The record is a 386-nucleotide RNA sequence from Mycoplasma wenyonii, which matches "Bacterial RNase P class B" in Rfam. Rfam describes the family as follows. Ribonuclease P (RNase P) is a ubiquitous endoribonuclease, found in archaea, bacteria and eukarya as well as chloroplasts and mitochondria. Its best characterised activity is the generation of mature 5'-ends of tRNAs by cleaving the 5'-leader elements of precursor-tRNAs. Cellular RNase Ps are ribonucleoproteins. RNA from bacterial RNase Ps retains its catalytic activity in the absence of the protein subunit, i.e. it is a ribozyme. The family's RNA type in Rfam is ribozyme.

[Rfam]
RNA sequence: AGUGGUAGGUAGCUUCUUAACUAACUAUCUUAUUGUAGUUUAGUUAAGUGAGAGGAAAGUCCAUGCUUGCAUAGUCUGAGAUGACUGUAGUGUUUGUGUAAGUACAUAAAAAAUAAAACUUAACGGCUAGUAAUAGACUAGUUGAUGGCGGAGAACCUUUCUAAAUAAGUGAAUAACUUACAAGAGUAAUUCUCUGUAAAGUGCCACAGAGACGAGCUCUAUAGAAAUAUAGAGUGUGAAACGAGGCAAACCCCUCAAGCAAGAAACCUAAAUAUUGGUAAGGGAACUUGAGCUAAGGAAGUGAACGAAGCUUAGGAAUCAAAUUGAUUAGAUUAAUUACCUACUUUUAUCUAACUCUAGAUAAAAACAGAACAUGGCUUAUUAUU
Numbered sequence: 001a002g003u004g005g006u007a008g009g010u011a012g013c014u015u016c017u018u019a020a021c022u023a024a025c026u027a028u029c030u031u032a033u034u035g036u037a038g039u040u041u042a043g044u045u046a047a048g049u050g051a052g053a054g055g056a057a058a059g060u061c062c063a064u065g066c067u068u069g070c071a072u073a074g075u076c077u078g079a080g081a082u083g084a085c086u087g088u089a090g091u092g093u094u095u096g097u098g099u100a101a102g103u104a105c106a107u108a109a110a111a112a113a114u115a116a117a118a119c120u121u122a123a124c125g126g127c128u129a130g131u132a133a134u135a136g137a138c139u140a141g142u143u144g145a146u147g148g149c150g151g152a153g154a155a156c157c158u159u160u161c162u163a164a165a166u167a168a169g170u171g172a173a174u175a176a177c178u179u180a181c182a183a184g185a186g187u188a189a190u191u192c193u194c195u196g197u198a199a200a201g202u203g204c205c206a207c208a209g210a211g212a213c214g215a216g217c218u219c220u221a222u223a224g225a226a227a228u229a230u231a232g233a234g235u236g237u238g239a240a241a242c243g244a245g246g247c248a249a250a251c252c253c254c255u256c257a258a259g260c261a262a263g264a265a266a267c268c269u270a271a272a273u274a275u276u277g278g279u280a281a282g283g284g285a286a287c288u289u290g291a292g293c294u295a296a297g298g299a300a301g302u303g304a305a306c307g308a309a310g311c312u313u314a315g316g317a318a319u320c321a322a323a324u325u326g327a328u329u330a331g332a333u334u335a336a337u338u339a340c341c342u343a344c345u346u347u348u349a350u351c352u353a354a355c356u357c358u359a360g361a362u363a364a365a366a367a368c369a370g371a372a373c374a375u376g377g378c379u380u381a382u383u384a385u386u
Stems, first nucleotide, its partner, number of pairs: 001386003004382001005344007013052003017048002057380003061377005066263005071088006094258003098254001099122005123146001124144008147253002150195004159186003166180005201251002203247003216235008267283003287316007317329005346365008
Dot-bracket structure: (((((((((((.(((.((............................)).)))....[[[.[[[[[(((((((((((......)))))).....(((.((((((..............)))))(((((((((.....)))))))).)((.((((.....(((....(((((.....)))))...))).....)))).....(((((..........((((((((....)))))))).........)))..))))).))))))))...(((...........)))...(((((((................)))))))(((((...)))))........))))))).((((((((....)))))))).......]]]]]]]].).)))